[Rfam]
RNA sequence: AGGACCUCAUGCUCCUCUGUUGAACUCAAAAGCAGACCCUGUGUUGACUUCAACAGGAACAAGAUGGAGCCCU
Numbered sequence: 001a002g003g004a005c006c007u008c009a010u011g012c013u014c015c016u017c018u019g020u021u022g023a024a025c026u027c028a029a030a031a032g033c034a035g036a037c038c039c040u041g042u043g044u045u046g047a048c049u050u051c052a053a054c055a056g057g058a059a060c061a062a063g064a065u066g067g068a069g070c071c072c073u
Stems, first nucleotide, its partner, number of pairs: 002071002005069001007067004013061001016058002018055007026047004031042001033041001